[Rfam]
RNA sequence: GGUCUGUGAUGAAUAGUAAAAGGUCUGAUGAUCCCAAGACUUGCACUUCCAUGACCUUUUCUCCCAGCAGUUGCUCACCAGUCACAGUACAGUAAUGGUGUGGCUGGCAGAGUGUUUGCUGACAGCUUGAGAUGUGUUCAGUUCAUGUUCACCUGGAGCGCUGGAGACAUGACUGUGAUCAGCAUCCAACAGUCCCCCUUCAAGGAGUUCGGGGUCUUGGAUUGUUGUAACUGGACAUAUGAUCUGACUUUCCUGCUGAGACC
Numbered sequence: 001g002g003u004c005u006g007u008g009a010u011g012a013a014u015a016g017u018a019a020a021a022g023g024u025c026u027g028a029u030g031a032u033c034c035c036a037a038g039a040c041u042u043g044c045a046c047u048u049c050c051a052u053g054a055c056c057u058u059u060u061c062u063c064c065c066a067g068c069a070g071u072u073g074c075u076c077a078c079c080a081g082u083c084a085c086a087g088u089a090c091a092g093u094a095a096u097g098g099u100g101u102g103g104c105u106g107g108c109a110g111a112g113u114g115u116u117u118g119c120u121g122a123c124a125g126c127u128u129g130a131g132a133u134g135u136g137u138u139c140a141g142u143u144c145a146u147g148u149u150c151a152c153c154u155g156g157a158g159c160g161c162u163g164g165a166g167a168c169a170u171g172a173c174u175g176u177g178a179u180c181a182g183c184a185u186c187c188a189a190c191a192g193u194c195c196c197c198c199u200u201c202a203a204g205g206a207g208u209u210c211g212g213g214g215u216c217u218u219g220g221a222u223u224g225u226u227g228u229a230a231c232u233g234g235a236c237a238u239a240u241g242a243u244c245u246g247a248c249u250u251u252c253c254u255g256c257u258g259a260g261a262c263c
Stems, first nucleotide, its partner, number of pairs: 001263004037245003041241001048221004053216002061207004065121006078107009129187001131186005144171006152164002155161001
Rfam assigns this 263-nucleotide RNA from Syrrhaptes paradoxus to the family "Small Cajal body specific RNA 6". Taxonomically the source falls in Syrrhaptes (Eukaryota, Opisthokonta, Amniota, Columbimorphae). Rfam 15.1 lists 1,309 matches to the family in 627 species. U88 is small Cajal body specific RNA (scaRNA). scaRNAs are a novel class of small nuclear RNAs which localise to the Cajal bodies. U88 is found associated with both fibrillarin and Gar1p and co-localises with coilin in Cajal bodies. The base pairs follow the family's consensus structure, which is taken from published work. The match comes from Rfam's covariance-model search (119 bits).